A member of the RNA family "DUF805b RNA", 36 nucleotides long. It is one of the family's seed sequences. Pairs were carried over by alignment from the consensus structure, which is taken from published work.
[Rfam]
RNA sequence: AAGGCGAAACUCGAAAAGCCUGUAAUAGAGUAGAGA
Numbered sequence: 001a002a003g004g005c006g007a008a009a010c011u012c013g014a015a016a017a018g019c020c021u022g023u024a025a026u027a028g029a030g031u032a033g034a035g036a
Stems, first nucleotide, its partner, number of pairs: 002021004010035003